[Rfam]
RNA sequence: GCGUUGGCUAGCUCAGGGGUUACUUCUACCAAUCCACGGUUCAACACUCCUGCAGUUUGCAGGAUCGAACCCCGGGCGCUGUCCAGCGUUUUC
Numbered sequence: 001g002c003g004u005u006g007g008c009u010a011g012c013u014c015a016g017g018g019g020u021u022a023c024u025u026c027u028a029c030c031a032a033u034c035c036a037c038g039g040u041u042c043a044a045c046a047c048u049c050c051u052g053c054a055g056u057u058u059g060c061a062g063g064a065u066c067g068a069a070c071c072c073c074g075g076g077c078g079c080u081g082u083c084c085a086g087c088g089u090u091u092u093c
Base pairs, nucleotide, nucleotide: 002088003087004086005085006084007083011077012076013075014074016073017072018071019070024069025068026067028065
The record is a 93-nucleotide RNA from Clupea harengus, which matches "Vault RNA" in Rfam. It is annotated as a non-coding RNA gene. Taxonomically the source falls in Clupea (Eukaryota, Vertebrata, Neopterygii, Teleostei). About the family: This family of RNAs are found as part of the enigmatic vault ribonucleoprotein complex. On this family, see Stadler et al., Mol Biol Evol 2009: "Evolution of Vault RNAs".